A member of the RNA family "tRNA" from Sharpea azabuensis, 73 nucleotides long. Pairs were carried over by alignment from the consensus structure, which is taken from published work. The source organism's lineage runs through Bacteria, Bacillota, Erysipelotrichia, Erysipelotrichales and Sharpea.
RNA sequence: GCGGAUAUGGUGAAGUGGUUAACACACCGGAUUGUGGCUCCGGCAUGCGUCGGUUCGAACCCGAUUAUCCGCC
Numbered sequence: 001g002c003g004g005a006u007a008u009g010g011u012g013a014a015g016u017g018g019u020u021a022a023c024a025c026a027c028c029g030g031a032u033u034g035u036g037g038c039u040c041c042g043g044c045a046u047g048c049g050u051c052g053g054u055u056c057g058a059a060c061c062c063g064a065u066u067a068u069c070c071g072c073c
Stems, first nucleotide, its partner, number of pairs: 001072007010025003027043005049065005